A member of the RNA family "pan motif" from Candidatus Atribacteria bacterium MT.SAG.1, 89 nucleotides long. It scores 43 bits against the family's covariance model. The base pairs follow the family's consensus structure, which is taken from published work. Taxonomically the source falls in Atribacterota (Bacteria, Pseudomonadati). It is annotated as a cis-regulatory element.
[Rfam]
RNA sequence: GGGCUUGUAUCUUGUAUAAGAACAAGACCAGGAGUAAAUUAAAUUAAUAGUAUUUCGUCUGGUAUCUGAAGAUGGAACUAGAACGGAGG
Numbered sequence: 001g002g003g004c005u006u007g008u009a010u011c012u013u014g015u016a017u018a019a020g021a022a023c024a025a026g027a028c029c030a031g032g033a034g035u036a037a038a039u040u041a042a043a044u045u046a047a048u049a050g051u052a053u054u055u056c057g058u059c060u061g062g063u064a065u066c067u068g069a070a071g072a073u074g075g076a077a078c079u080a081g082a083a084c085g086g087a088g089g
Base pairs, nucleotide, nucleotide: 002029003028004026005025006024007023008022010021011020056085057084058083059081060080061079062078063077065076066075067074